[Rfam]
The family of this 211-nucleotide RNA sequence from Ancylobacter tetraedralis is "permuted transfer-messenger RNA". Rfam describes the family as follows. Bacterial tmRNA, also known as 10Sa RNA or SsrA, is named for its dual tRNA and mRNA-like properties. Rfam classes the family as a non-coding RNA gene. It scores 151 bits against the family's covariance model. The family's consensus secondary structure is taken from published work.

RNA sequence: GGCGAUAAACGGAAAUCGGAAUAAACUCUUCGGACCCGGGGGCAGUACCCGGCGCCUCCACCAGAGCCCGUCAGGGGCGGGCUGCGGCGGGGGCGAAACAGGAUCGACGAGAGCGUAAAGGGUCUUCUUUCGCCCGGCAUGGUACCGCCGUCAUCGGACCAAACAUAUAGUUGCCAACGACAACUAUGCUCCGGUUGCUCAGGCCGCGUGA
Numbered sequence: 001g002g003c004g005a006u007a008a009a010c011g012g013a014a015a016u017c018g019g020a021a022u023a024a025a026c027u028c029u030u031c032g033g034a035c036c037c038g039g040g041g042g043c044a045g046u047a048c049c050c051g052g053c054g055c056c057u058c059c060a061c062c063a064g065a066g067c068c069c070g071u072c073a074g075g076g077g078c079g080g081g082c083u084g085c086g087g088c089g090g091g092g093g094c095g096a097a098a099c100a101g102g103a104u105c106g107a108c109g110a111g112a113g114c115g116u117a118a119a120g121g122g123u124c125u126u127c128u129u130u131c132g133c134c135c136g137g138c139a140u141g142g143u144a145c146c147g148c149c150g151u152c153a154u155c156g157g158a159c160c161a162a163a164c165a166u167a168u169a170g171u172u173g174c175c176a177a178c179g180a181c182a183a184c185u186a187u188g189c190u191c192c193g194g195u196u197g198c199u200c201a202g203g204c205c206g207c208g209u210g211a
Stems, first nucleotide, its partner, number of pairs: 001134005015123003026113003030110003036052005053095007135150004